[Rfam]
RNA sequence: AGCUUUGCGCAGUGGCAGUAUUGUAGCCAGUGAGGUUUAUCCGAGGCGCUAAUUGAAAACUUUUCCCAAUGCCCUGCCAUGACGACCUGAAAUAUAGUUGGCAUUGGCAAUUUUUGGCAGUCUCCAUGGGGA
Numbered sequence: 001a002g003c004u005u006u007g008c009g010c011a012g013u014g015g016c017a018g019u020a021u022u023g024u025a026g027c028c029a030g031u032g033a034g035g036u037u038u039a040u041c042c043g044a045g046g047c048g049c050u051a052a053u054u055g056a057a058a059a060c061u062u063u064u065c066c067c068a069a070u071g072c073c074c075u076g077c078c079a080u081g082a083c084g085a086c087c088u089g090a091a092a093u094a095u096a097g098u099u100g101g102c103a104u105u106g107g108c109a110a111u112u113u114u115u116g117g118c119a120g121u122c123u124c125c126a127u128g129g130g131g132a
Stems, first nucleotide, its partner, number of pairs: 021051001023049002026047003034042002076108003079104003083100004121132004
The record is a 132-nucleotide RNA sequence from Saimiri boliviensis, which matches "U4 spliceosomal RNA" in Rfam. The family's RNA type in Rfam is spliceosomal small nuclear RNA. NCBI's taxonomy places the organism under Eukaryota, Mammalia, Theria, Saimiriinae, Saimiri boliviensis.